[Rfam]
RNA sequence: GAAUUUCGUCAAAGCCGACCUCCUCCCCGGCGAUGACGAAUAAGACCGGACCUCUCCUCCUCCCUGAGGCCGGUCACCAAAACGACACCCGCCGGACAUCCUCCCCCGGCGGGUGUUGUGU
Dot-bracket structure: .....(((.((..(((............)))..)).)))....((((((.(.(............).).)))))).........(((((((((((..........))))))))))).....
RNA: Alphaproteobacterial ar14